[Rfam]
RNA sequence: AGCCCCUUGGCAAUGGGCAAGGAGACACCUGUUUGGUUGUGGUGCUCUUAUAUCAGUCAGGGGCAAAGCAGAGGUACAAUUCUUCGUUCAUCCUAGCUUGAUGCCUGUGUUGGUGGCCGGAUUGCUUCAUGCCUGAGGCACAUUA
Numbered sequence: 001a002g003c004c005c006c007u008u009g010g011c012a013a014u015g016g017g018c019a020a021g022g023a024g025a026c027a028c029c030u031g032u033u034u035g036g037u038u039g040u041g042g043u044g045c046u047c048u049u050a051u052a053u054c055a056g057u058c059a060g061g062g063g064c065a066a067a068g069c070a071g072a073g074g075u076a077c078a079a080u081u082c083u084u085c086g087u088u089c090a091u092c093c094u095a096g097c098u099u100g101a102u103g104c105c106u107g108u109g110u111u112g113g114u115g116g117c118c119g120g121a122u123u124g125c126u127u128c129a130u131g132c133c134u135g136a137g138g139c140a141c142a143u144u145a
Stems, first nucleotide, its partner, number of pairs: 002064006009058001014055003020049003024043001026041003086139003100133001102131001106129002111124002114121001
A member of the RNA family "Small nucleolar RNA SNORA48" from Myotis myotis, 145 nucleotides long.
The source organism's lineage runs through Eukaryota, Opisthokonta, Vertebrata, Amniota and Myotis.
The family is grouped with related families in Rfam's "SNORA48 clan".
Rfam describes the family as follows. The snoRNA ACA 48 has been identified to guide pseudouridylation of the residue U3797 in the 28S rRNA subunit.
The match comes from Rfam's covariance-model search (58 bits).
A reference for the family is Ofengand and Bakin (1997), "Mapping to nucleotide resolution of pseudouridine residues in large subunit ribosomal RNAs from representative eukaryotes, prokaryotes, archaebacteria, mitochondria and chloroplasts", J Mol Biol.
The family's consensus secondary structure was predicted with RNAalifold.